[Rfam]
RNA: SAM riboswitch aptamer (S box leader)
Organism: Bacillus sp. FJAT-49711
RNA sequence: CUCUUAUGAAGAGAGGCGGAGGGACUGGCCCUGUGAAGCCUCGGCAACCAUUGAAUAAUAUUUUUUAUUCAAACGGUGCCAAUUCCAGCAGAUUUUUUUUGAAUCUGAUAUAUAAGAG
Numbered sequence: 001c002u003c004u005u006a007u008g009a010a011g012a013g014a015g016g017c018g019g020a021g022g023g024a025c026u027g028g029c030c031c032u033g034u035g036a037a038g039c040c041u042c043g044g045c046a047a048c049c050a051u052u053g054a055a056u057a058a059u060a061u062u063u064u065u066u067a068u069u070c071a072a073a074c075g076g077u078g079c080c081a082a083u084u085c086c087a088g089c090a091g092a093u094u095u096u097u098u099u100u101g102a103a104u105c106u107g108a109u110a111u112a113u114a115a116g117a118g
Stems, first nucleotide, its partner, number of pairs: 001118008013042005021031003025088004043080004048076002051072007084110001089107006